[Rfam]
The family of this 229-nucleotide RNA sequence from Nakamurella flava is "Actinobacteria sRNA Ms_IGR-5". For this family Rfam cites "Identification of small RNAs in Mycobacterium smegmatis using heterologous Hfq" (Li et al., RNA, 2013). Pairs were carried over by alignment from the consensus structure. Rfam classes the family as a small RNA.

RNA sequence: ACACGGGAGAGGAGGUGGUCCAACGUUGAAGACGUCAUGGACUCGUGAGGUGGCUGGCCGCUAGGCCGUCGACCCGCGUCAGGUCAGAACUGCUCCGGCACACCGGCGGAGAUCACGGUCUGGCCAUCACCGGACAGUCAGCCGACCCCCGAGCCGCCGACCGUGUCCAGUCGGCCCGGACCUCCACUCACCGGAGUGCGGAACGGACAAGGCUCGGGGGUUGUCCACG
Numbered sequence: 001a002c003a004c005g006g007g008a009g010a011g012g013a014g015g016u017g018g019u020c021c022a023a024c025g026u027u028g029a030a031g032a033c034g035u036c037a038u039g040g041a042c043u044c045g046u047g048a049g050g051u052g053g054c055u056g057g058c059c060g061c062u063a064g065g066c067c068g069u070c071g072a073c074c075c076g077c078g079u080c081a082g083g084u085c086a087g088a089a090c091u092g093c094u095c096c097g098g099c100a101c102a103c104c105g106g107c108g109g110a111g112a113u114c115a116c117g118g119u120c121u122g123g124c125c126a127u128c129a130c131c132g133g134a135c136a137g138u139c140a141g142c143c144g145a146c147c148c149c150c151g152a153g154c155c156g157c158c159g160a161c162c163g164u165g166u167c168c169a170g171u172c173g174g175c176c177c178g179g180a181c182c183u184c185c186a187c188u189c190a191c192c193g194g195a196g197u198g199c200g201g202a203a204c205g206g207a208c209a210a211g212g213c214u215c216g217g218g219g220g221u222u223g224u225c226c227a228c229g
Base pairs, nucleotide, nucleotide: 014058016056017055018054019053060124061123062122063121064120065119066118067117068116069115071113073111143223144222145221146220147219148218149217150216151215152214153213154212155211156175157174158173159172160171161170